[Rfam]
RNA sequence: UUAGCUAUUUUAGGUAGGUUUGUGUUCAUGUAAUUAUGGAUGCAAACGCAGCGUUUGUAUCUAUGAUGGCUAGGGGAAUUUGUAAUGUAAUUACAGCCGCCGUAGAUGAUUGAAUAUCUAUAGUGGCUUUUUAUAUUUUAUUAUACUCUUAACGGGAGUGUAAGAUGCCUACUGUAGAUGUUUCAU
Numbered sequence: 001u002u003a004g005c006u007a008u009u010u011u012a013g014g015u016a017g018g019u020u021u022g023u024g025u026u027c028a029u030g031u032a033a034u035u036a037u038g039g040a041u042g043c044a045a046a047c048g049c050a051g052c053g054u055u056u057g058u059a060u061c062u063a064u065g066a067u068g069g070c071u072a073g074g075g076g077a078a079u080u081u082g083u084a085a086u087g088u089a090a091u092u093a094c095a096g097c098c099g100c101c102g103u104a105g106a107u108g109a110u111u112g113a114a115u116a117u118c119u120a121u122a123g124u125g126g127c128u129u130u131u132u133a134u135a136u137u138u139u140a141u142u143a144u145a146c147u148c149u150u151a152a153c154g155g156g157a158g159u160g161u162a163a164g165a166u167g168c169c170u171a172c173u174g175u176a177g178a179u180g181u182u183u184c185a186u
Stems, first nucleotide, its partner, number of pairs: 001073007011063006018047012050056002082141004095128006103120006142162007